[Rfam]
RNA: Small nucleolar RNA R44/J54/Z268 family
Organism: Papaver somniferum
RNA sequence: UUUGCAAGCGAUGAUAAAACAGACAGGGACAUUAAAAAUCCUUUUAGGAUAAUAAUAUGUUGACACGUCUUGGGAAUCUCUUUGAUGCAUA
Numbered sequence: 001u002u003u004g005c006a007a008g009c010g011a012u013g014a015u016a017a018a019a020c021a022g023a024c025a026g027g028g029a030c031a032u033u034a035a036a037a038a039u040c041c042u043u044u045u046a047g048g049a050u051a052a053u054a055a056u057a058u059g060u061u062g063a064c065a066c067g068u069c070u071u072g073g074g075a076a077u078c079u080c081u082u083u084g085a086u087g088c089a090u091a
Base pairs, nucleotide, nucleotide: 003089004088005087006086